Rfam assigns this 179-nucleotide sequence from Oryza barthii to the family "MIR807 microRNA precursor family". The source organism's lineage runs through Eukaryota, Euphyllophyta, Liliopsida, Petrosaviidae and Oryza. A reference for the family is Luo et al. (2006), "Rice embryogenic calli express a unique set of microRNAs, suggesting regulatory roles of microRNAs in plant post-embryogenic development", FEBS Lett.
RNA sequence: AACCACACUAUCGAUGAAUGGAUUCACUUGUGAUAUGACGACGUGGUUGUUUCAUCUAGUAUGAGGACGUGGCAUCAUAUUAAUUUCGUGUGAUGGCUGGUAAUAGGAUGCCAUAUCCUCGUCCUAGGUGAAACAGCCACAUCAUCUUGCGGGUGAAUCUAUACAUCGAUAGUGUAGUU
Numbered sequence: 001a002a003c004c005a006c007a008c009u010a011u012c013g014a015u016g017a018a019u020g021g022a023u024u025c026a027c028u029u030g031u032g033a034u035a036u037g038a039c040g041a042c043g044u045g046g047u048u049g050u051u052u053c054a055u056c057u058a059g060u061a062u063g064a065g066g067a068c069g070u071g072g073c074a075u076c077a078u079a080u081u082a083a084u085u086u087c088g089u090g091u092g093a094u095g096g097c098u099g100g101u102a103a104u105a106g107g108a109u110g111c112c113a114u115a116u117c118c119u120c121g122u123c124c125u126a127g128g129u130g131a132a133a134c135a136g137c138c139a140c141a142u143c144a145u146c147u148u149g150c151g152g153g154u155g156a157a158u159c160u161a162u163a164c165a166u167c168g169a170u171a172g173u174g175u176a177g178u179u
Base pairs, nucleotide, nucleotide: 001179002178003177005175006174007173009171010170011169012168013167014166015165018162019161021159022158023157024156025155026154027153028152030150031149032148033147035145036144037143038142044139045138046137047136048135049134050133051132054129055128057126058125061122066117067116072111073110074109075108076107078105079104080103081102082101